The record is a 106-nucleotide sequence from Hibiscus syriacus, which matches "Small nucleolar RNA Z43" in Rfam. It scores 78 bits against the family's covariance model. Its family is annotated with nucleolus and RNA processing in the Gene Ontology. Lineage of the source: Eukaryota > Tracheophyta > Pentapetalae > Malvoideae > Hibiscus. On this family, see Chen et al., Nucleic Acids Res 2003: "The high diversity of snoRNAs in plants: identification and comparative study of 120 snoRNA genes from Oryza sativa". By type it is a C/D-box small nucleolar RNA. The family's consensus secondary structure was predicted with PFOLD.
RNA sequence: GGACGGUGACGAUCUCAUUUGUAAAAGGUUUCGUUCGUUGUAAAUCGGCUGUUUUUAAUAGCCUUAGCCGACCAUCCUGCUAUAUCACCACCCAUACUCCGAGUCC
Numbered sequence: 001g002g003a004c005g006g007u008g009a010c011g012a013u014c015u016c017a018u019u020u021g022u023a024a025a026a027g028g029u030u031u032c033g034u035u036c037g038u039u040g041u042a043a044a045u046c047g048g049c050u051g052u053u054u055u056u057a058a059u060a061g062c063c064u065u066a067g068c069c070g071a072c073c074a075u076c077c078u079g080c081u082a083u084a085u086c087a088c089c090a091c092c093c094a095u096a097c098u099c100c101g102a103g104u105c106c
Base pairs, nucleotide, nucleotide: 001106002105003104004103050066051065052060